Rfam assigns this 432-nucleotide RNA from Shewanella sp. SNU WT4 to the family "cspA thermoregulator".
The match comes from Rfam's covariance-model search (108 bits).
Pairs were carried over by alignment from the consensus structure, which is taken from published work.
Rfam 15.1 lists 2,094 matches to the family in 1,285 species.
On this family, see Giuliodori et al., Mol Cell 2010: "The cspA mRNA is a thermosensor that modulates translation of the cold-shock protein CspA".
The family's RNA type in Rfam is RNA thermoregulator.
Nucleotides: 432
Base pairs, nucleotide, nucleotide: 005019006018007017008016009015026226029222030221038217039216042215043214044213048206049205050204060200061199063197067194068193071191072190073189079154080153081152082151083150084149085148089146090145091144092143093142094141095140097110098109099108100107121130122129123128156177157176158175160173230319232317233316234315239247240246251307252306253305254304255303259300260299261297262296264291265290267288272285274283325340326339327338342378343377344376345375347373348372349371381397382396383395385393402429403428404427405426406425407424408423409422410421411420412419413418
Number, partner (000 for none) and nucleotide at each position: 001000g002000a003000c004000u005019u006018c007017u008016g009015u010000u011000u012000g013000u014000a015009a016008u017007g018006g019005g020000u021000u022000a023000u024000a025000g026226u027000c028000a029222u030221u031000c032000a033000a034000g035000c036000u037000a038217g039216a040000a041000c042215g043214u044213u045000a046000g047000g048206c049205u050204u051000a052000u053000a054000u055000u056000u057000a058000u059000g060200u061199a062000u063197a064000c065000a066000a067194u068193g069000c070000g071191a072190c073189c074000a075000a076000a077000c078000u079154u080153g081152u082151c083150c084149u085148g086000u087000u088000c089146a090145c091144a092143u093142a094141a095140g096000u097110a098109a099108a100107a101000c102000u103000g104000g105000c106000a107100u108099u109098u110097u111000c112000a113000g114000c115000u116000c117000u118000a119000c120000c121130g122129c123128c124000g125000u126000u127000a128123g129122g130121c131000u132000u133000u134000u135000u136000a137000u138000u139000a140095u141094u142093u143092a144091u145090g146089u147000a148085c149084a150083g151082g152081a153080u154079g155000a156177c157176u158175a159000u160173u161000a162000u163000g164000u165000c166000u167000c168000a169000a170000g171000u172000a173160a174000c175158u176157g177156g178000u179000g180000u181000a182000g183000u184000u185000a186000a187000g188000u189073g190072g191071u192000u193068c194067a195000a196000c197063u198000c199061u200060g201000a202000c203000a204050a205049a206048g207000g208000u209000u210000u211000c212000g213044g214043a215042u216039u217038c218000a219000u220000c221030g222029a223000g224000c225000a226026a227000g228000a229000g230319u231000c232317u233316g234315g235000c236000c237000c238000a239247g240246a241000u242000g243000u244000g245000u246240u247239u248000g249000u250000u251307c252306a253305c254304u255303u256000c257000c258000g259300u260299g261297c262296u263000a264291u265290c266000a267288a268000c269000u270000c271000a272285g273000a274283u275000g276000g277000u278000u279000u280000c281000a282000a283274a284000a285272c286000u287000u288267u289000a290265g291264a292000c293000g294000a295000a296262g297261g298000u299260c300259a301000g302000a303255a304254a305253g306252u307251g308000c309000a310000g311000u312000u313000c314000a315234c316233u317232g318000u319230a320000a321000c322000u323000c324000a325340a326339g327338g328000c329000c330000a331000g332000a333000a334000a335000g336000g337000u338327c339326c340325u341000c342378a343377a344376g345375c346000u347373g348372a349371g350000a351000a352000c353000g354000u355000a356000a357000c358000c359000a360000u361000c362000g363000u364000u365000g366000g367000u368000u369000a370000a371349u372348u373347c374000c375345g376344c377343u378342u379000a380000a381397g382396g383395c384000u385393c386000u387000u388000a389000u390000c391000g392000a393385g394000a395383g396382u397381c398000a399000a400000u401000u402429a403428a404427a405426a406425g407424c408423c409422g410421u411420g412419g413418u414000a415000a416000u417000u418413a419412c420411c421410a422409u423408g424407g425406c426405u427404u428403u429402u430000u431000u432000a
Gene Ontology terms of the family: regulation of translation and response to temperature stimulus. NCBI's taxonomy places the organism under Bacteria, Pseudomonadati, Alteromonadales, Shewanellaceae, Shewanella.